[Rfam]
RNA: MIR408 microRNA precursor family
Organism: Citrus unshiu
RNA sequence: AAGAAGCAAGAGACAAAAGACGGGGAACAGGCAGAGCAUGGAUGGAACCAUUAACAGGUUCUCUGUUUUGGCUCCUCCCAUGCACUGCCUCUUCCCUGGCUCUCUGCCUUCCUCGUCUU
Numbered sequence: 001a002a003g004a005a006g007c008a009a010g011a012g013a014c015a016a017a018a019g020a021c022g023g024g025g026a027a028c029a030g031g032c033a034g035a036g037c038a039u040g041g042a043u044g045g046a047a048c049c050a051u052u053a054a055c056a057g058g059u060u061c062u063c064u065g066u067u068u069u070g071g072c073u074c075c076u077c078c079c080a081u082g083c084a085c086u087g088c089c090u091c092u093u094c095c096c097u098g099g100c101u102c103u104c105u106g107c108c109u110u111c112c113u114c115g116u117c118u119u
Base pairs, nucleotide, nucleotide: 018101019100021098022097023096024095025094026093027092029090030089031088032087033086034085036083037082038081039080040079041078045074046073